[Rfam]
RNA sequence: CCGUCCGCCAUGGGAGACGGCGUGUCCGCUCCGGCGGAUGGCGGUUACGCUGACGACGUGCGCCUCCCCCCGAGGCGCAAAGCCGACAGCCGUCGCAUCCCAGGGAGUACUCCAUG
Numbered sequence: 001c002c003g004u005c006c007g008c009c010a011u012g013g014g015a016g017a018c019g020g021c022g023u024g025u026c027c028g029c030u031c032c033g034g035c036g037g038a039u040g041g042c043g044g045u046u047a048c049g050c051u052g053a054c055g056a057c058g059u060g061c062g063c064c065u066c067c068c069c070c071c072g073a074g075g076c077g078c079a080a081a082g083c084c085g086a087c088a089g090c091c092g093u094c095g096c097a098u099c100c101c102a103g104g105g106a107g108u109a110c111u112c113c114a115u116g
Base pairs, nucleotide, nucleotide: 059079060078061077062076063075064074065073066072082096083095085094086093087092
Description:
Shown here is a 116-nucleotide RNA from Streptomyces somaliensis, a member of the family "Streptomyces-metH RNA". NCBI's taxonomy places the organism under Bacteria, Actinomycetota, Streptomycetaceae, Streptomyces, Streptomyces somaliensis. Rfam's curators put it in the seed alignment. The family's RNA type in Rfam is small RNA.